[Rfam]
RNA sequence: UCCAGCGUGAGCUGGAAUCUGAAGAAAGGAUUAGGCAAAACUCUGGCUUGUUACAUCUGAGGCUAGUUACAUGGACUAGGUUGCGAGACAAACCAAAAUCCAAUAACUGUACAGAAAUGUGUCUUGUAUUUAUGAAAUGAGUAUAAGAGGGAAAGAACGUGUG
Number, nucleotide and partner (000 for none) at each position: 001u016002c015003c014004a013005g012006c011007g000008u000009g000010a000011g006012c005013u004014g003015g002016a001017a000018u000019c000020u000021g000022a000023a000024g000025a000026a000027a000028g000029g162030a000031u000032u159033a000034g000035g000036c155037a000038a000039a000040a000041c149042u148043c147044u146045g000046g142047c141048u140049u139050g138051u137052u136053a000054c134055a133056u132057c000058u000059g000060a000061g000062g127063c126064u000065a000066g123067u000068u121069a120070c119071a118072u117073g101074g100075a099076c000077u000078a000079g094080g093081u092082u091083g000084c000085g000086a000087g000088a000089c000090a000091a082092a081093c080094c079095a000096a000097a000098a000099u075100c074101c073102a000103a000104u000105a000106a000107c000108u000109g000110u000111a000112c000113a000114g000115a000116a000117a072118u071119g070120u069121g068122u000123c066124u000125u000126g063127u062128a000129u000130u000131u000132a056133u055134g054135a000136a052137a051138u050139g049140a048141g047142u046143a000144u000145a000146a044147g043148a042149g041150g000151g000152a000153a000154a000155g036156a000157a000158c000159g032160u000161g000162u029163g000
A member of the RNA family "Group II catalytic intron D1-D4-3" from Pseudobacteroides cellulosolvens, 163 nucleotides long. The organism belongs to Pseudobacteroides cellulosolvens, within Bacteria. Pairs were carried over by alignment from the consensus structure.